[Rfam]
RNA sequence: CUACAAUGAUGGCAAUAAAUUUUGUCAACAAUGGUCCACCUAACUUUGGAUCUGACUGA
Numbered sequence: 001c002u003a004c005a006a007u008g009a010u011g012g013c014a015a016u017a018a019a020u021u022u023u024g025u026c027a028a029c030a031a032u033g034g035u036c037c038a039c040c041u042a043a044c045u046u047u048g049g050a051u052c053u054g055a056c057u058g059a
Base pairs, nucleotide, nucleotide: 002058003057008026009025010024011023
The family of this 59-nucleotide RNA from Otolemur garnettii is "Small nucleolar RNA SNORD56". For this family Rfam cites "Purified box C/D snoRNPs are able to reproduce site-specific 2'-O-methylation of target RNA in vitro" (Galardi et al., Mol Cell Biol, 2002). Pairs were carried over by alignment from the consensus structure, which was predicted with PFOLD. It scores 43 bits against the family's covariance model. Rfam classes the family as a C/D-box small nucleolar RNA.